[Rfam]
RNA sequence: GUGGGGUACGGAGACAUGGUGCCAAAGACGUACAUCGGGAUGUUCGUGGGGGCUUUGUGCGCUCUCGCCGGUGUGCUUACUAUCGCCUUGCCCGUGCCUGUGAUCGUUUCCAAU
Numbered sequence: 001g002u003g004g005g006g007u008a009c010g011g012a013g014a015c016a017u018g019g020u021g022c023c024a025a026a027g028a029c030g031u032a033c034a035u036c037g038g039g040a041u042g043u044u045c046g047u048g049g050g051g052g053c054u055u056u057g058u059g060c061g062c063u064c065u066c067g068c069c070g071g072u073g074u075g076c077u078u079a080c081u082a083u084c085g086c087c088u089u090g091c092c093c094g095u096g097c098c099u100g101u102g103a104u105c106g107u108u109u110c111c112a113a114u
Base pairs, nucleotide, nucleotide: 001114002113004111005110008107009106010105011104014101015100016099018097021095022094037077038076040074049063050062

A member of the RNA family "Potassium channel RNA editing signal" from Zophobas morio, 114 nucleotides long. The organism belongs to Zophobas, within Eukaryota. By type it is a cis-regulatory element.